[Rfam]
Notes:
Rfam assigns this 61-nucleotide RNA sequence from Actinomadura rubteroloni to the family "Actino-pnp RNA". The family's RNA type in Rfam is cis-regulatory element. NCBI's taxonomy places the organism under Bacteria, Bacillati, Actinomycetes, Thermomonosporaceae, Actinomadura.
RNA sequence: GCCGGUCCUCGGUAGUGGCGUCCGGAUCGCGACGAUCCGGGUGCUUCGAUCGAAGACCGGC
Numbered sequence: 001g002c003c004g005g006u007c008c009u010c011g012g013u014a015g016u017g018g019c020g021u022c023c024g025g026a027u028c029g030c031g032a033c034g035a036u037c038c039g040g041g042u043g044c045u046u047c048g049a050u051c052g053a054a055g056a057c058c059g060g061c
Stems, first nucleotide, its partner, number of pairs: 001061007009053005017045013